Background
The record is a 127-nucleotide RNA sequence from Glycine max, which matches "MIR1520 microRNA precursor family" in Rfam. The match comes from Rfam's covariance-model search (70 bits). The source organism's lineage runs through Eukaryota, Streptophyta, Streptophytina, Magnoliopsida and Glycine subgen. Soja. The base pairs follow the family's consensus structure, which was predicted with RNAalifold.
[Rfam]
RNA sequence: UUACGCAUAAAUAUUGAUUGUCACGUGUCAUGUUUUGAUUGAAUGAUGAAUAGAAAAAUAUUAGAUCUAACUUUUGAGCGCAUAUUUUCAUGUCUAAUCAGGAUAUGACAUUUGACAGUCAAUAUUU
Dot-bracket structure: ...................((((.((..(((.((((.(((.......................................................))).)))).)))..)).))))...........